[Rfam]
Shown here is a 100-nucleotide RNA sequence from Tetracentron sinense, a member of the family "mir-283 microRNA precursor family". Its family is annotated with miRNA-mediated post-transcriptional gene silencing and RISC complex in the Gene Ontology. The source organism's lineage runs through Eukaryota, Streptophytina, Tracheophyta, Mesangiospermae and Tetracentron. The family is grouped with related families in Rfam's "mir-216 clan". The base pairs follow the family's consensus structure, which was predicted with WAR.
RNA sequence: GGGUUUAUUUCGAAAAUCAGAUUUCGGCCGAAAUUUUGAAAAUUUCGGAUGAAAUUUCGAAAAUUUCGGAAUUUCGGCCGAAAUCUGAUUUUUUAUUUUU
Numbered sequence: 001g002g003g004u005u006u007a008u009u010u011c012g013a014a015a016a017u018c019a020g021a022u023u024u025c026g027g028c029c030g031a032a033a034u035u036u037u038g039a040a041a042a043u044u045u046c047g048g049a050u051g052a053a054a055u056u057u058c059g060a061a062a063a064u065u066u067c068g069g070a071a072u073u074u075c076g077g078c079c080g081a082a083a084u085c086u087g088a089u090u091u092u093u094u095a096u097u098u099u100u
Stems, first nucleotide, its partner, number of pairs: 013092006021084011033072008